Record summary
This 192-nucleotide RNA from Vulpes vulpes belongs to the Rfam family "U2 spliceosomal RNA". A search with the family's covariance model found it, with a score of 105 bits. The family's RNA type in Rfam is spliceosomal small nuclear RNA.
[Rfam]
RNA sequence: GUUGCUUUGUAGCCUUUUGGCUGAAUCAAAUGUAGUACUGUUCUUAUCAGCUUAAUAUCUGGUAUGUCCCCUAUCUGAGGAUAAAUAUAUAAAUGGAUUUUUGGAGCAGGGAGAAGAAAUUAGUAGCUUGCUCCAUCCACUGUCAUCCAUCGACCUGGUUAUUUCAGUACUUCCGGGAAUGAUACACCUCUA
Numbered sequence: 001g002u003u004g005c006u007u008u009g010u011a012g013c014c015u016u017u018u019g020g021c022u023g024a025a026u027c028a029a030a031u032g033u034a035g036u037a038c039u040g041u042u043c044u045u046a047u048c049a050g051c052u053u054a055a056u057a058u059c060u061g062g063u064a065u066g067u068c069c070c071c072u073a074u075c076u077g078a079g080g081a082u083a084a085a086u087a088u089a090u091a092a093a094u095g096g097a098u099u100u101u102u103g104g105a106g107c108a109g110g111g112a113g114a115a116g117a118a119a120u121u122a123g124u125a126g127c128u129u130g131c132u133c134c135a136u137c138c139a140c141u142g143u144c145a146u147c148c149a150u151c152g153a154c155c156u157g158g159u160u161a162u163u164u165c166a167g168u169a170c171u172u173c174c175g176g177g178a179a180u181g182a183u184a185c186a187c188c189u190c191u192a
Stems, first nucleotide, its partner, number of pairs: 007025002011022004045064006066082004071077001110144002112141002116137002123134001125132002149183004154177005
Dot-bracket structure: ......((..((((....)))).))...................((((((........)))))).((((.(.....).))))...........................((((..((.....(.((....)).).))..)).))....((((.(((((..............)))))..)))).........
Lineage of the source: Eukaryota > Vertebrata > Teleostomi > Euteleostomi > Vulpes. Gene Ontology terms of the family: pre-mRNA branch point binding, U2 snRNP and mRNA branch site recognition. U2 is a small nuclear RNA (snRNA) component of the spliceosome (involved in pre-mRNA splicing). Complementary binding between U2 snRNA (in an area lying towards the 5' end but 3' to hairpin I) and the branchpoint sequence (BPS) of the intron results the bulging out of an unpaired adenosine, on the BPS, which initiates a nucleophilic attack at the intronic 5' splice site, thus starting the first of two transesterification reactions that mediate splicing.